[Rfam]
RNA sequence: ACAGGCAAAGCCGAAAACCUGUAGAAAAUAGUAGGCA
Number, nucleotide and partner (000 for none) at each position: 001a000002c021003a020004g019005g018006c000007a000008a000009a000010g036011c035012c034013g000014a000015a000016a000017a000018c005019c004020u003021g002022u000023a000024g000025a000026a000027a000028a000029u000030a000031g000032u000033a000034g012035g011036c010037a000

Rfam assigns this 37-nucleotide RNA sequence from Chitinophaga rupis to the family "DUF805b RNA".
The family is grouped with related families in Rfam's "DUF805 clan".
Taxonomically the source falls in Chitinophaga (Bacteria, Pseudomonadati, Chitinophagales, Chitinophagaceae).
It scores 36 bits against the family's covariance model.